RNA sequence: GCACCUCUGGAAAGCGCGCGGAUACCCCGCGCCACCGACGGUGAAAGUCGUCCGGCCGGACGGCGAACCUCUCAGGUGCGAUGACAGAGGGAACCUG
Numbered sequence: 001g002c003a004c005c006u007c008u009g010g011a012a013a014g015c016g017c018g019c020g021g022a023u024a025c026c027c028c029g030c031g032c033c034a035c036c037g038a039c040g041g042u043g044a045a046a047g048u049c050g051u052c053c054g055g056c057c058g059g060a061c062g063g064c065g066a067a068c069c070u071c072u073c074a075g076g077u078g079c080g081a082u083g084a085c086a087g088a089g090g091g092a093a094c095c096u097g
Base pairs, nucleotide, nucleotide: 004090005089006088007087008086009085016032017031018030019029034077035076036075037073038072041071043069047064048063049062050061051060052059053058